[Rfam]
RNA: RT-2 RNA
RNA sequence: CACGGUCAAAUGGAGUAGCCAAGCGGUGAAAGACGACCGAUGUAAAAGGAGAGAUACUUCCCAGGGGGAAACCCCUGAAACUGCCCUCUGACGGCCACGCACGGACGCUGCUUGCAUGGCGGGUGAUUGCGCUGAUCUCGUUUCAUGUGCUGGGCCAAAGUAGUUUAGAGGCGCACCUACAACUUAACUAUGCGGAGGGCGAAUACUUUUUAUGACCAGU
Dot-bracket structure: ...((((...........((....))........))))........................((((......))))......((((((((.(((((..((((....((.....))..((((((.............))))))....))))..))))...(((((.(((........)).......)))))))))))))))....................
Numbered sequence: 001c002a003c004g005g006u007c008a009a010a011u012g013g014a015g016u017a018g019c020c021a022a023g024c025g026g027u028g029a030a031a032g033a034c035g036a037c038c039g040a041u042g043u044a045a046a047a048g049g050a051g052a053g054a055u056a057c058u059u060c061c062c063a064g065g066g067g068g069a070a071a072c073c074c075c076u077g078a079a080a081c082u083g084c085c086c087u088c089u090g091a092c093g094g095c096c097a098c099g100c101a102c103g104g105a106c107g108c109u110g111c112u113u114g115c116a117u118g119g120c121g122g123g124u125g126a127u128u129g130c131g132c133u134g135a136u137c138u139c140g141u142u143u144c145a146u147g148u149g150c151u152g153g154g155c156c157a158a159a160g161u162a163g164u165u166u167a168g169a170g171g172c173g174c175a176c177c178u179a180c181a182a183c184u185u186a187a188c189u190a191u192g193c194g195g196a197g198g199g200c201g202a203a204u205a206c207u208u209u210u211u212a213u214g215a216c217c218a219g220u
Stems, first nucleotide, its partner, number of pairs: 004038004019026002063076004083200008092192001093156004099150004107115002118142006160191005166186001167178002